[Rfam]
RNA sequence: CUCUUAUCAAGAGAGGUGGAGGGACGGGCCCGAGGAUACCCAGCAACCGGCUAAUUAGCACGGUGCUAAUUCCCGCAGAUGAGAG
Numbered sequence: 001c002u003c004u005u006a007u008c009a010a011g012a013g014a015g016g017u018g019g020a021g022g023g024a025c026g027g028g029c030c031c032g033a034g035g036a037u038a039c040c041c042a043g044c045a046a047c048c049g050g051c052u053a054a055u056u057a058g059c060a061c062g063g064u065g066c067u068a069a070u071u072c073c074c075g076c077a078g079a080u081g082a083g084a085g
Stems, first nucleotide, its partner, number of pairs: 001085008013041001015040003021031003026074003042067004047063002050059003071077001